[Rfam]
Shown here is a 123-nucleotide RNA sequence from Drosophila mojavensis, a member of the family "mir-31 microRNA precursor family". Its family is annotated with RISC complex and gene silencing by miRNA in the Gene Ontology. The family has 75 seed sequences and 1,181 matches in Rfam 15.1. The family is grouped with related families in Rfam's "mir-31 microRNA precursor family". A reference for the family is Aravin et al. (2003), "The small RNA profile during Drosophila melanogaster development", Dev Cell. The sequence is in the family's curated seed alignment.
RNA sequence: AAUAAUGAAUUUGGCAAGAUGUCGGAAUAGCUGAGAGCACAAAUAUCAUAGAAUCCAGAAUUUAUAUUUUGUGUAUUUUAUUGAGUACAGCGGCUAUGCCUCAUCUAGUCAAUUGCAUUCAUU
Numbered sequence: 001a002a003u004a005a006u007g008a009a010u011u012u013g014g015c016a017a018g019a020u021g022u023c024g025g026a027a028u029a030g031c032u033g034a035g036a037g038c039a040c041a042a043a044u045a046u047c048a049u050a051g052a053a054u055c056c057a058g059a060a061u062u063u064a065u066a067u068u069u070u071g072u073g074u075a076u077u078u079u080a081u082u083g084a085g086u087a088c089a090g091c092g093g094c095u096a097u098g099c100c101u102c103a104u105c106u107a108g109u110c111a112a113u114u115g116c117a118u119u120c121a122u123u
Stems, first nucleotide, its partner, number of pairs: 005118003009114001011112005017106005024100002027097007